[Rfam]
A member of the RNA family "miR-430 microRNA precursor family" from Labrus bergylta, 70 nucleotides long. NCBI's taxonomy places the organism under Eukaryota, Teleostomi, Teleostei, Ctenosquamata, Labrus. Gene Ontology terms of the family: RISC complex and miRNA-mediated post-transcriptional gene silencing.
RNA sequence: AGCAUUUCCUAAACAGAUGCACUGACUUGGAAUAUGAAUGCAGUAAGUGCUACUUGUUGGGGUAAUGUUG
Number, nucleotide and partner (000 for none) at each position: 001a000002g000003c000004a066005u065006u064007u000008c062009c061010u060011a000012a000013a057014c056015a055016g054017a000018u000019g050020c049021a048022c047023u046024g000025a044026c043027u042028u000029g000030g000031a000032a000033u000034a000035u000036g000037a000038a000039u000040g000041c000042a027043g026044u025045a000046a023047g022048u021049g020050c019051u000052a000053c000054u016055u015056g014057u013058u000059g000060g010061g009062g008063u000064a006065a005066u004067g000068u000069u000070g000